[Rfam]
RNA sequence: UAGCCUGAAAUGAUGUUACAAAUUCAUGUCUCUUCUCUGAGAUGUAUUCUGGAGACAGCCCAGUGCAUUGCUGAUCAGGCUU
Numbered sequence: 001u002a003g004c005c006u007g008a009a010a011u012g013a014u015g016u017u018a019c020a021a022a023u024u025c026a027u028g029u030c031u032c033u034u035c036u037c038u039g040a041g042a043u044g045u046a047u048u049c050u051g052g053a054g055a056c057a058g059c060c061c062a063g064u065g066c067a068u069u070g071c072u073g074a075u076c077a078g079g080c081u082u
Base pairs, nucleotide, nucleotide: 002081003080004079005078
RNA: Small nucleolar RNA SNORD111